Rfam assigns this 155-nucleotide sequence from Salibacterium salarium to the family "FMN riboswitch aptamer (RFN element)".
[Rfam]
RNA sequence: UGCAAACUUCGGGGUAGGGUGAAAUUCCCAAUCGGCGGUGAUAAAGUCAAAUCACUUUUUAGUCCGCGACCCGUAAAAGGAUUUAUUUAUCUUUUGCGGUGGAUCUGGUGAAAUUCCAGAGCCGACAGUGAUAGUCUGGAUGGGAGAAGGAGAAC
Numbered sequence: 001u002g003c004a005a006a007c008u009u010c011g012g013g014g015u016a017g018g019g020u021g022a023a024a025u026u027c028c029c030a031a032u033c034g035g036c037g038g039u040g041a042u043a044a045a046g047u048c049a050a051a052u053c054a055c056u057u058u059u060u061a062g063u064c065c066g067c068g069a070c071c072c073g074u075a076a077a078a079g080g081a082u083u084u085a086u087u088u089a090u091c092u093u094u095u096g097c098g099g100u101g102g103a104u105c106u107g108g109u110g111a112a113a114u115u116c117c118a119g120a121g122c123c124g125a126c127a128g129u130g131a132u133a134g135u136c137u138g139g140a141u142g143g144g145a146g147a148a149g150g151a152g153a154a155c
Base pairs, nucleotide, nucleotide: 007149008148009147010146017029018028019027031135032134033124034123035067036066037065038064062122063121071099072098073097074096075095076094104120105119106118107117108116126138127137128136
Taxonomically the source falls in Salibacterium (Bacteria, Bacilli, Caryophanales, Bacillaceae).